RNA sequence: UACUUGCCGUGAUGACUCCUAUUAGGACGGUAUCUGAAGGGGUGACUUUUAAGUGCAUCCCUUCUGAUUAUACCAAAACUGAAUAUGGUUUCUGAGCAAAUA
Numbered sequence: 001u002a003c004u005u006g007c008c009g010u011g012a013u014g015a016c017u018c019c020u021a022u023u024a025g026g027a028c029g030g031u032a033u034c035u036g037a038a039g040g041g042g043u044g045a046c047u048u049u050u051a052a053g054u055g056c057a058u059c060c061c062u063u064c065u066g067a068u069u070a071u072a073c074c075a076a077a078a079c080u081g082a083a084u085a086u087g088g089u090u091u092c093u094g095a096g097c098a099a100a101u102a
Stems, first nucleotide, its partner, number of pairs: 001102002004099004038063005
Dot-bracket structure: ((.((((..............................(((((................)))))................................)))).))
Shown here is a 102-nucleotide sequence from Panicum hallii, a member of the family "Small nucleolar RNA Z118/Z121/Z120". The family's consensus secondary structure was predicted with PFOLD. The source organism's lineage runs through Eukaryota, Tracheophyta, Liliopsida, Panicum sect. Panicum and Panicum hallii.